Rfam assigns this 136-nucleotide sequence from Arminella tubonensis to the family "Alphaproteobacterial sRNA ar35". The literature on the family includes a 2012 paper in RNA Biol by del Val et al., "A survey of sRNA families in alpha-proteobacteria". The match comes from Rfam's covariance-model search (53 bits). Taxonomically the source falls in Arminella (Bacteria, Pseudomonadota, Hyphomicrobiales, Rhizobiaceae).
RNA sequence: AGUCGGGCAAGAUGUCGGCCUGCAAUCUCCAGGCUGUCUAAAUCGGUAUCUGCUUUCCUUUGACCACGGAUGUACUGGCACUGUCGAAAGCAAACUAUGAACCGAGGUCAGGCAUGAUUGCCUGGCCUUUUUUAUG
Numbered sequence: 001a002g003u004c005g006g007g008c009a010a011g012a013u014g015u016c017g018g019c020c021u022g023c024a025a026u027c028u029c030c031a032g033g034c035u036g037u038c039u040a041a042a043u044c045g046g047u048a049u050c051u052g053c054u055u056u057c058c059u060u061u062g063a064c065c066a067c068g069g070a071u072g073u074a075c076u077g078g079c080a081c082u083g084u085c086g087a088a089a090g091c092a093a094a095c096u097a098u099g100a101a102c103c104g105a106g107g108u109c110a111g112g113c114a115u116g117a118u119u120g121c122c123u124g125g126c127c128u129u130u131u132u133u134a135u136g
Stems, first nucleotide, its partner, number of pairs: 003046004009039001016036005049094001051092005058083001061080002064078003097135005104129011